Notes: This 351-nucleotide RNA from Pseudooceanicola atlanticus belongs to the Rfam family "Alphaproteobacteria transfer-messenger RNA". Bacterial tmRNA, also known as 10Sa RNA or SsrA, is named for its dual tRNA and mRNA-like properties. Its role is to liberate the mRNA from a stalled ribosome. To accomplish this part of the tmRNA is used as a reading frame that ends in a translation stop signal. The broken mRNA is replaced in the ribosome by the tmRNA and translation of the tmRNA leads to addition of a proteolysis tag to the incomplete protein enabling recognition by a protease. It is annotated as a non-coding RNA gene.

[Rfam]
RNA sequence: CCCGUUGAAAAGCACCGGCCCAGCCCCUAUAUCUCGGCUGUCGGGCAACCGACUAUGGACAUAAACGCGCUCGUAAUAAGCGGCUCGGACCCGGGGGCGGUACCCGGCGGCUCCACCAAUCAUCCUUCGUUUGGGGAUCAUGGGGCCGAAAUAGGAUCGACGGACGUCUAAAGGGGUUUGCUUUGUCUCGGUGAGGUACCACCGUUACCGGUCCGAAAAGUACAAUUGCAAACGACAAUCGUGCUCCGGUUGCUCUGGCUGCGUAAGCAGUUCGAGGAAUCGAAACUUAAGCCCUAGGUUCUAGCAAAUCUAGGCGGGGUCCGCAGGCACCUGGCAACAGAAGCCUGCAUU
Numbered sequence: 001c002c003c004g005u006u007g008a009a010a011a012g013c014a015c016c017g018g019c020c021c022a023g024c025c026c027c028u029a030u031a032u033c034u035c036g037g038c039u040g041u042c043g044g045g046c047a048a049c050c051g052a053c054u055a056u057g058g059a060c061a062u063a064a065a066c067g068c069g070c071u072c073g074u075a076a077u078a079a080g081c082g083g084c085u086c087g088g089a090c091c092c093g094g095g096g097g098c099g100g101u102a103c104c105c106g107g108c109g110g111c112u113c114c115a116c117c118a119a120u121c122a123u124c125c126u127u128c129g130u131u132u133g134g135g136g137a138u139c140a141u142g143g144g145g146c147c148g149a150a151a152u153a154g155g156a157u158c159g160a161c162g163g164a165c166g167u168c169u170a171a172a173g174g175g176g177u178u179u180g181c182u183u184u185g186u187c188u189c190g191g192u193g194a195g196g197u198a199c200c201a202c203c204g205u206u207a208c209c210g211g212u213c214c215g216a217a218a219a220g221u222a223c224a225a226u227u228g229c230a231a232a233c234g235a236c237a238a239u240c241g242u243g244c245u246c247c248g249g250u251u252g253c254u255c256u257g258g259c260u261g262c263g264u265a266a267g268c269a270g271u272u273c274g275a276g277g278a279a280u281c282g283a284a285a286c287u288u289a290a291g292c293c294c295u296a297g298g299u300u301c302u303a304g305c306a307a308a309u310c311u312a313g314g315c316g317g318g319g320u321c322c323g324c325a326g327g328c329a330c331c332u333g334g335c336a337a338c339a340g341a342a343g344c345c346u347g348c349a350u351u
Stems, first nucleotide, its partner, number of pairs: 040053005057188005067181002069177004081166002085163003091107005108148007189204004195214002198212003317332004323348006